[Rfam]
RNA sequence: GGGCAAUGAUGAGAAAUUAGAGAAAGUCAUGCACCACGCUGAUUGUAAUUUGUGCUGAUAAUUUCUCCAUACCCAUAUUUGUCUGAGCUC
Numbered sequence: 001g002g003g004c005a006a007u008g009a010u011g012a013g014a015a016a017u018u019a020g021a022g023a024a025a026g027u028c029a030u031g032c033a034c035c036a037c038g039c040u041g042a043u044u045g046u047a048a049u050u051u052g053u054g055c056u057g058a059u060a061a062u063u064u065c066u067c068c069a070u071a072c073c074c075a076u077a078u079u080u081g082u083c084u085g086a087g088c089u090c
Stems, first nucleotide, its partner, number of pairs: 001090004

About this RNA
Shown here is a 90-nucleotide RNA from Theobroma umbraticum, a member of the family "Small nucleolar RNA Z221/R21b". A reference for the family is Chen et al. (2003), "The high diversity of snoRNAs in plants: identification and comparative study of 120 snoRNA genes from Oryza sativa", Nucleic Acids Res. The family's consensus secondary structure was predicted with WAR. Rfam links the family to the GO terms RNA processing and nucleolus. It scores 69 bits against the family's covariance model.